The family of this 84-nucleotide RNA from Photobacterium gaetbulicola is "c-di-GMP-I riboswitch aptamer". The base pairs follow the family's consensus structure, which is taken from published work. Rfam links the family to the GO term cyclic-di-GMP binding. NCBI's taxonomy places the organism under Bacteria, Pseudomonadati, Pseudomonadota, Gammaproteobacteria, Photobacterium gaetbulicola.

RNA sequence: UUGUGACAACGGCAAACUAAAUGAAAGUUUAGGACGCAAAGCUUCCGGUCUAACGAGUUUCUCAAUGAUAGCGGGGCUACCUCA
Numbered sequence: 001u002u003g004u005g006a007c008a009a010c011g012g013c014a015a016a017c018u019a020a021a022u023g024a025a026a027g028u029u030u031a032g033g034a035c036g037c038a039a040a041g042c043u044u045c046c047g048g049u050c051u052a053a054c055g056a057g058u059u060u061c062u063c064a065a066u067g068a069u070a071g072c073g074g075g076g077c078u079a080c081c082u083c084a
Base pairs, nucleotide, nucleotide: 012037013036017032018031019030020029021028022027040078041077042076043075045074046073047072048069049068050067055063056062057061